[Rfam]
RNA sequence: CGGUCUUUUCAAAGAGGGCCUAUGGAGCAGUGAAACCAGGAGCUCUUAAUGCUAUUAUCAAAGAUUGAAGUUUUCCAUAGGAUGCCAUAGUCACUUCAUAGGCUAUGUGUUCCUGAGGAGGUGUAGCC
Number, nucleotide and partner (000 for none) at each position: 001c000002g059003g058004u057005c000006u000007u054008u000009u000010c000011a000012a000013a000014g047015a046016g045017g044018g043019c042020c000021u040022a000023u039024g000025g000026a000027g036028c000029a000030g000031u000032g000033a000034a000035a000036c027037c000038a000039g023040g021041a000042g019043c018044u017045c016046u015047u014048a000049a000050u000051g000052c000053u000054a007055u000056u000057a004058u003059c002060a000061a000062a000063g000064a000065u000066u000067g000068a000069a000070g000071u000072u121073u120074u119075c118076c117077a000078u000079a114080g113081g112082a111083u000084g000085c000086c000087a106088u105089a104090g103091u000092c102093a000094c101095u100096u000097c000098a000099u000100a095101g094102g092103c090104u089105a088106u087107g000108u000109g000110u000111u082112c081113c080114u079115g000116a000117g076118g075119a074120g073121g072122u000123g000124u000125a000126g000127c000128c000

Shown here is a 128-nucleotide RNA from Equus caballus, a member of the family "Small nucleolar RNA SNORA25". Rfam classes the family as an H/ACA-box small nucleolar RNA. About the family: ACA25 is a member of the H/ACA class of snoRNA that guide the sites of modification of uridines to pseudouridines. The family's consensus secondary structure was predicted with RNAfold.